[Rfam]
RNA: Small nucleolar RNA SNORD60
RNA sequence: AGCCUGUGAUGAAUUGCAUUAAGUUGUGACACCUCAUAUGAAAACUGCAUGUGCAGUCUGAUUAUAUUGCAAGACUGAGGCCU
Numbered sequence: 001a002g003c004c005u006g007u008g009a010u011g012a013a014u015u016g017c018a019u020u021a022a023g024u025u026g027u028g029a030c031a032c033c034u035c036a037u038a039u040g041a042a043a044a045c046u047g048c049a050u051g052u053g054c055a056g057u058c059u060g061a062u063u064a065u066a067u068u069g070c071a072a073g074a075c076u077g078a079g080g081c082c083u
Base pairs, nucleotide, nucleotide: 002081003080004079044057045056046055047054048053